[Rfam]
RNA sequence: CUGGAGAAGCCGAAAAUCCAAAAAAGAGUAGGCA
Numbered sequence: 001c002u003g004g005a006g007a008a009g010c011c012g013a014a015a016a017u018c019c020a021a022a023a024a025a026g027a028g029u030a031g032g033c034a
Stems, first nucleotide, its partner, number of pairs: 002020004009033003

Rfam assigns this 34-nucleotide RNA sequence from Flavobacterium johnsoniae to the family "DUF805b RNA". The family's RNA type in Rfam is cis-regulatory element. Taxonomically the source falls in Flavobacterium johnsoniae (Bacteria, Pseudomonadati, Bacteroidota, Flavobacteriales).